Rfam assigns this 106-nucleotide RNA sequence from Corymbia citriodora to the family "mir-395 microRNA precursor family". The source organism's lineage runs through Eukaryota, Spermatophyta, Mesangiospermae, malvids and Corymbia citriodora. The literature on the family includes a 2004 paper in Mol Cell by Jones-Rhoades and Bartel, "Computational Identification of Plant MicroRNAs and Their Targets, Including a Stress-Induced miRNA". A search with the family's covariance model found it, with a score of 64 bits.
RNA sequence: GUGGCACCGGGAGUUCCCCCAAACACUUCACUAGGAACUUCACUUGUCUUUACUUUUUUCCUUUUCAAAUCCCCAUUGAAGUGUUUGGGAGAACUCUAGGGGCCAC
Numbered sequence: 001g002u003g004g005c006a007c008c009g010g011g012a013g014u015u016c017c018c019c020c021a022a023a024c025a026c027u028u029c030a031c032u033a034g035g036a037a038c039u040u041c042a043c044u045u046g047u048c049u050u051u052a053c054u055u056u057u058u059u060c061c062u063u064u065u066c067a068a069a070u071c072c073c074c075a076u077u078g079a080a081g082u083g084u085u086u087g088g089g090a091g092a093a094c095u096c097u098a099g100g101g102g103c104c105a106c
Base pairs, nucleotide, nucleotide: 005102007100008099011096012095013094014093015092016091018089019088020087021086022085023084024083025082026081027080028079029078030077032075034073035072